The family of this 115-nucleotide RNA sequence from Salvelinus namaycush is "U5 spliceosomal RNA". A search with the family's covariance model found it, with a score of 79 bits. Lineage of the source: Eukaryota > Neopterygii > Osteoglossocephalai > Clupeocephala > Salvelinus. The family's consensus secondary structure is taken from published work.
[Rfam]
RNA sequence: CGACUCUGGUUUCUCUUCAUUACACAAGCCUUUCGCCUUUUACUAAAGACUUCCGUGGAGAGGAACACUCAUGAGUUCAACGUAUUUUUGGAAGGGCUUUGCUUCUGGCAGAGCC
Numbered sequence: 001c002g003a004c005u006c007u008g009g010u011u012u013c014u015c016u017u018c019a020u021u022a023c024a025c026a027a028g029c030c031u032u033u034c035g036c037c038u039u040u041u042a043c044u045a046a047a048g049a050c051u052u053c054c055g056u057g058g059a060g061a062g063g064a065a066c067a068c069u070c071a072u073g074a075g076u077u078c079a080a081c082g083u084a085u086u087u088u089u090g091g092a093a094g095g096g097c098u099u100u101g102c103u104u105c106u107g108g109c110a111g112a113g114c115c
Base pairs, nucleotide, nucleotide: 003076004075005074006073009066010065011064012063013062014061015060016059017058018057019056026052027051028050030048031047032046033045096114097113098112099111100110101109
For this family Rfam cites "The uRNA database" (Zwieb, Nucleic Acids Res, 1997). The family's RNA type in Rfam is spliceosomal small nuclear RNA.